[Rfam]
RNA sequence: AGGGCAGAUCGGGCAAUCGCGGGGGAUGCAAAUCCUUCGAGGAAGGUCCGGACUCCACAGGGCGGGAUAGCGGCUAACGGCCGUCCGGCGACGCUGGCGGGCUUGCCCGCCGGAAAAGCCGAGGAACAGGGCCACAGAGACGAGUCUGUCAUGAGGGCGCGCCUGGCGCGCACCGGCACGGCCAUCUCCGUGCCGCGCCGUCCGGAAACGGGCGGCGGCAUGACAGGGUGAAACGCGGCAACCUCUAUCCGGAGCAACAUCAAAUAGGCAUGCGUACGGCCGUAAGGCCGGGAAGGGCGGCUCCGUCCAAGCAUGCGGGUAGGUGGCUGGAGCGGUCCAGCAAUGGUUCGCCAAGAGGAAUGAUUGCCCGCCGGGGAAACCCGGCGUACAGAAUCCGGCCUAUAGAUCUGCUCU
Numbered sequence: 001a002g003g004g005c006a007g008a009u010c011g012g013g014c015a016a017u018c019g020c021g022g023g024g025g026a027u028g029c030a031a032a033u034c035c036u037u038c039g040a041g042g043a044a045g046g047u048c049c050g051g052a053c054u055c056c057a058c059a060g061g062g063c064g065g066g067a068u069a070g071c072g073g074c075u076a077a078c079g080g081c082c083g084u085c086c087g088g089c090g091a092c093g094c095u096g097g098c099g100g101g102c103u104u105g106c107c108c109g110c111c112g113g114a115a116a117a118g119c120c121g122a123g124g125a126a127c128a129g130g131g132c133c134a135c136a137g138a139g140a141c142g143a144g145u146c147u148g149u150c151a152u153g154a155g156g157g158c159g160c161g162c163c164u165g166g167c168g169c170g171c172a173c174c175g176g177c178a179c180g181g182c183c184a185u186c187u188c189c190g191u192g193c194c195g196c197g198c199c200g201u202c203c204g205g206a207a208a209c210g211g212g213c214g215g216c217g218g219c220a221u222g223a224c225a226g227g228g229u230g231a232a233a234c235g236c237g238g239c240a241a242c243c244u245c246u247a248u249c250c251g252g253a254g255c256a257a258c259a260u261c262a263a264a265u266a267g268g269c270a271u272g273c274g275u276a277c278g279g280c281c282g283u284a285a286g287g288c289c290g291g292g293a294a295g296g297g298c299g300g301c302u303c304c305g306u307c308c309a310a311g312c313a314u315g316c317g318g319g320u321a322g323g324u325g326g327c328u329g330g331a332g333c334g335g336u337c338c339a340g341c342a343a344u345g346g347u348u349c350g351c352c353a354a355g356a357g358g359a360a361u362g363a364u365u366g367c368c369c370g371c372c373g374g375g376g377a378a379a380c381c382c383g384g385c386g387u388a389c390a391g392a393a394u395c396c397g398g399c400c401u402a403u404a405g406a407u408c409u410g411c412u413c414u
Stems, first nucleotide, its partner, number of pairs: 001414010011403001012368007020039008044401003048398005053254004060303004065250005070084005085123001086121004124245002129243002131239003148167004153162001155160001175194006195219001196217005202211003258325004268316006295308004332351004337346003

This 414-nucleotide RNA sequence from Bordetella parapertussis belongs to the Rfam family "Bacterial RNase P class A".
NCBI's taxonomy places the organism under Bacteria, Betaproteobacteria, Burkholderiales, Alcaligenaceae, Bordetella.
From the family's description: Ribonuclease P (RNase P) is a ubiquitous endoribonuclease, found in archaea, bacteria and eukarya as well as chloroplasts and mitochondria.
Rfam's curators put it in the seed alignment.